[Rfam]
c-di-GMP-I riboswitch aptamer: an 89-nucleotide RNA sequence from Alkaliphilus metalliredigens.
RNA sequence: UGUUGAUAAAGGCAAACUUAUUGAAAAAUAAGGACGCAAAGCUAUGGAUCUAAGGGAAGUUGUAUUCCUAUGAUUGCCAGGUUGCCGAA
Numbered sequence: 001u002g003u004u005g006a007u008a009a010a011g012g013c014a015a016a017c018u019u020a021u022u023g024a025a026a027a028a029u030a031a032g033g034a035c036g037c038a039a040a041g042c043u044a045u046g047g048a049u050c051u052a053a054g055g056g057a058a059g060u061u062g063u064a065u066u067c068c069u070a071u072g073a074u075u076g077c078c079a080g081g082u083u084g085c086c087g088a089a
Stems, first nucleotide, its partner, number of pairs: 012037002017032006040083004045079003048074003055068004

The family's consensus secondary structure is taken from published work.